The family of this 100-nucleotide RNA from Citricoccus sp. SGAir0253 is "Glycine riboswitch aptamer". The source organism's lineage runs through Bacteria, Bacillati, Actinomycetes, Micrococcaceae and Citricoccus. It scores 52 bits against the family's covariance model.

RNA sequence: CUGAGCGGUCCGGGAGAGAUCCCGCUCCACCCGGAUGCGCGACGCCGACGGAGCAAGCCCUCCCCGGGAAACUCACAGGCACCCGUACCGGACCGCUGGG
Numbered sequence: 001c002u003g004a005g006c007g008g009u010c011c012g013g014g015a016g017a018g019a020u021c022c023c024g025c026u027c028c029a030c031c032c033g034g035a036u037g038c039g040c041g042a043c044g045c046c047g048a049c050g051g052a053g054c055a056a057g058c059c060c061u062c063c064c065c066g067g068g069a070a071a072c073u074c075a076c077a078g079g080c081a082c083c084c085g086u087a088c089c090g091g092a093c094c095g096c097u098g099g100g
Stems, first nucleotide, its partner, number of pairs: 006095008020042002023039003044080003047076001051074003058066001